[Rfam]
RNA sequence: UGGAGAAGGGGAGCACGUGCAAAGUUUGAGAGAUAGUAUUAGCUACAUGGAACUUGCACGUGCCCUGCUUCUCCAAC
Numbered sequence: 001u002g003g004a005g006a007a008g009g010g011g012a013g014c015a016c017g018u019g020c021a022a023a024g025u026u027u028g029a030g031a032g033a034u035a036g037u038a039u040u041a042g043c044u045a046c047a048u049g050g051a052a053c054u055u056g057c058a059c060g061u062g063c064c065c066u067g068c069u070u071c072u073c074c075a076a077c
Base pairs, nucleotide, nucleotide: 001075002074003073004072005071006070007069008068010066011065013063014062015061016060017059018058019057020056021055022054024053025052029044030043
A member of the RNA family "MIR164 microRNA precursor family" from Corchorus olitorius, 77 nucleotides long. Lineage of the source: Eukaryota > Streptophytina > Gunneridae > Grewioideae > Corchorus.